[Rfam]
RNA sequence: AUUGAUAUACGCAUGUUGCCGAAGACAGCAGGUGUCCGAAUGGACAUAACGCAACGCUACCUGCCGAGGUCAUGAUGAAUUCUAUUGAAUCGUUAUGAGACCUCUACGGCUAUAUGGCCGCAGAGGUCUUUUUUGGCAAUU
Numbered sequence: 001a002u003u004g005a006u007a008u009a010c011g012c013a014u015g016u017u018g019c020c021g022a023a024g025a026c027a028g029c030a031g032g033u034g035u036c037c038g039a040a041u042g043g044a045c046a047u048a049a050c051g052c053a054a055c056g057c058u059a060c061c062u063g064c065c066g067a068g069g070u071c072a073u074g075a076u077g078a079a080u081u082c083u084a085u086u087g088a089a090u091c092g093u094u095a096u097g098a099g100a101c102c103u104c105u106a107c108g109g110c111u112a113u114a115u116g117g118c119c120g121c122a123g124a125g126g127u128c129u130u131u132u133u134u135g136g137c138a139a140u141u
Base pairs, nucleotide, nucleotide: 028064029063030062031061032060033059034045035044036043101126102125103124104123105122107120108119109118110117
Ribosomal protein L10 leader: a 141-nucleotide RNA from Lachnospiraceae bacterium KHCPX20.